[Rfam]
RNA: U5 spliceosomal RNA
RNA sequence: ACACUGGUUUCUCUUCAGAUCGAAUAAAUCUUUCGCCUUUUACUAAAGAUUUCCGUGGAGAGAAACAAAUCAGUUAUAAGCUAAUUUUUUGUAAGCCUUGCCCUGGGGAGGCAG
Numbered sequence: 001a002c003a004c005u006g007g008u009u010u011c012u013c014u015u016c017a018g019a020u021c022g023a024a025u026a027a028a029u030c031u032u033u034c035g036c037c038u039u040u041u042a043c044u045a046a047a048g049a050u051u052u053c054c055g056u057g058g059a060g061a062g063a064a065a066c067a068a069a070u071c072a073g074u075u076a077u078a079a080g081c082u083a084a085u086u087u088u089u090u091g092u093a094a095g096c097c098u099u100g101c102c103c104u105g106g107g108g109a110g111g112c113a114g
Base pairs, nucleotide, nucleotide: 003074004073005072006071007066008065009064010063011062012061013060014059015058016057017056026052027051028050029049030048031047032046033045092114095112096111097110098109099108
Dot-bracket structure: ..(((((((((((((((........((((((((...........))))))))...)))))))))))....)))).................(..(((((........))))).)